A member of the RNA family "Histone 3' UTR stem-loop" from Cyprinus carpio, 46 nucleotides long. It scores 39 bits against the family's covariance model. The family's consensus secondary structure is taken from published work. The mRNAs of metazoan histone genes lack a poly-A tail. 3' end processing occurs at a site between a highly conserved stem-loop (modelled by this family) and a purine rich region around 20 nts downstream (the histone downstream element, or HDE). The stem-loop is bound by a 31 kDa stem-loop binding protein (SLBP - also termed the histone hairpin binding protein, or HBP). By type it is a cis-regulatory element.
[Rfam]
RNA sequence: CCAAAGGCUCUUUUCAGAGCCACCUCAAUUUGUCUUACAAAGUACA
Numbered sequence: 001c002c003a004a005a006g007g008c009u010c011u012u013u014u015c016a017g018a019g020c021c022a023c024c025u026c027a028a029u030u031u032g033u034c035u036u037a038c039a040a041a042g043u044a045c046a
Base pairs, nucleotide, nucleotide: 006021007020008019009018010017011016